[Rfam]
The record is a 267-nucleotide RNA sequence from Molossus molossus, which matches "Mason-Pfizer monkey virus packaging signal" in Rfam.
RNA sequence: UGGCGCCCAACGUGGGGCUCCAGCACGGGGAAUCCAGUGAAGGACGCCUUUCAAGUGGCCAGCAGAAAGGAAAAGAAAAGAGGGAACGACGUGGGAACCUGCUACGUCUGCACCCCUCGGGUAAGUGAACGGCGAUUAUGGGUCAAGCAUUGAGCCAAGAUAAGAUGUUCGUUGAAGGACUAGGAAAGGCUAUAAAGGCAUGAGGAGUAAAGGUAAAAAUCAAGCAUUUGUGUCAGUAUUUUGAUUAUAUUAAAGAAGUUUGUCCUU
Numbered sequence: 001u002g003g004c005g006c007c008c009a010a011c012g013u014g015g016g017g018c019u020c021c022a023g024c025a026c027g028g029g030g031a032a033u034c035c036a037g038u039g040a041a042g043g044a045c046g047c048c049u050u051u052c053a054a055g056u057g058g059c060c061a062g063c064a065g066a067a068a069g070g071a072a073a074a075g076a077a078a079a080g081a082g083g084g085a086a087c088g089a090c091g092u093g094g095g096a097a098c099c100u101g102c103u104a105c106g107u108c109u110g111c112a113c114c115c116c117u118c119g120g121g122u123a124a125g126u127g128a129a130c131g132g133c134g135a136u137u138a139u140g141g142g143u144c145a146a147g148c149a150u151u152g153a154g155c156c157a158a159g160a161u162a163a164g165a166u167g168u169u170c171g172u173u174g175a176a177g178g179a180c181u182a183g184g185a186a187a188g189g190c191u192a193u194a195a196a197g198g199c200a201u202g203a204g205g206a207g208u209a210a211a212g213g214u215a216a217a218a219a220u221c222a223a224g225c226a227u228u229u230g231u232g233u234c235a236g237u238a239u240u241u242u243g244a245u246u247a248u249a250u251u252a253a254a255g256a257a258g259u260u261u262g263u264c265c266u267u
Base pairs, nucleotide, nucleotide: 006030007029008028012026013025014024035046082117083115084114087110090106091105092104093103094102126145127144128143130142133140134139151194152193154190155189156188201243202242203241204240205239207237208236211229212228213227214226252267253266255264256263

About this RNA
Rfam describes the family as follows. This family represents a group of sequences that are related to the Mason-Pfizer monkey virus (MPMV) packaging signal. The packaging signal is located in the 5' UTR and is required for specific RNA encapsidation. By type it is a cis-regulatory element.